[Rfam]
RNA: ZMP/ZTP riboswitch aptamer (pfl RNA motif)
RNA sequence: GAACCGAGCCGUGACUGGCGCGCUGGGAUGGGACCGACCAUCGGGGAGCGGCUCGUGAACUGUGUGCCGUGCGCCUGGGCCGACCGA
Numbered sequence: 001g002a003a004c005c006g007a008g009c010c011g012u013g014a015c016u017g018g019c020g021c022g023c024u025g026g027g028a029u030g031g032g033a034c035c036g037a038c039c040a041u042c043g044g045g046g047a048g049c050g051g052c053u054c055g056u057g058a059a060c061u062g063u064g065u066g067c068c069g070u071g072c073g074c075c076u077g078g079g080c081c082g083a084c085c086g087a
Stems, first nucleotide, its partner, number of pairs: 005055008015045002017075005028041004066080003